[Rfam]
RNA sequence: ACCUAGGGUAGAGGUGCUGUAACUAAUAGUAUCUAUGCUGAGCCGGCGGGCAAAGAAGCAUAGGGAAAGGAGUUAUAGCCGAAGGGAAAAUAUCCGCAAGAGUUUUCCCUGGCAUUGUAUAAAAUAUAUACAAUGCUGUCAUCAUGAAAAUGAUGGAGAGCUACAAGGUAC
Numbered sequence: 001a002c003c004u005a006g007g008g009u010a011g012a013g014g015u016g017c018u019g020u021a022a023c024u025a026a027u028a029g030u031a032u033c034u035a036u037g038c039u040g041a042g043c044c045g046g047c048g049g050g051c052a053a054a055g056a057a058g059c060a061u062a063g064g065g066a067a068a069g070g071a072g073u074u075a076u077a078g079c080c081g082a083a084g085g086g087a088a089a090a091u092a093u094c095c096g097c098a099a100g101a102g103u104u105u106u107c108c109c110u111g112g113c114a115u116u117g118u119a120u121a122a123a124a125u126a127u128a129u130a131c132a133a134u135g136c137u138g139u140c141a142u143c144a145u146g147a148a149a150a151u152g153a154u155g156g157a158g159a160g161c162u163a164c165a166a167g168g169u170a171c
Stems, first nucleotide, its partner, number of pairs: 008164004016079009032064008083110009093100001111137011139156007
Source information:
The family of this 171-nucleotide sequence from Clostridium sp. USBA 49 is "Lysine riboswitch aptamer". NCBI's taxonomy places the organism under Bacteria, Clostridia, Eubacteriales, Clostridiaceae, Clostridium. The match comes from Rfam's covariance-model search (121 bits). Its family is annotated with lysine biosynthetic process in the Gene Ontology.